[Rfam]
RNA sequence: UAGCGCUAACGCAAUUAGUGGAAAAAGAAUUACAGUUAGGACAUAUAGAACCUUCACUUAGUUGUUGGAACACACCUGUCUUUGUGAUCCGGAAGGCUUCCGGGUCUUAUCGCUUAUUGCAUGACUUGCGCGCUGUUAACGCCCAGCUUGUUCCUUUUGGGGGCCGCCAACAAGGGGCGCCAAUUCUCUCCGCGUUCCGGCGUGGCUGCCCCCUGAUGUUCUUAGACCUCAAGGGUUGCUUCUUUUUUAUUCCUCUUGCGGAACAAGAUCGCGAAGCUUUUGCAUUUAC
Dot-bracket structure: ..........(((...(((((.............................((..((......))..)).................(((((((.......)))))))...)))))...)))....................((....(((((((......((((.(((((....(((((((.(......)..)))))))....))).)).)))).((((.............................)))).........)))))))...)).................
Shown here is a 289-nucleotide RNA, a member of the family "Retroviral 3'UTR stability element". The family's consensus secondary structure is taken from published work. Its family is annotated with regulation of RNA stability in the Gene Ontology.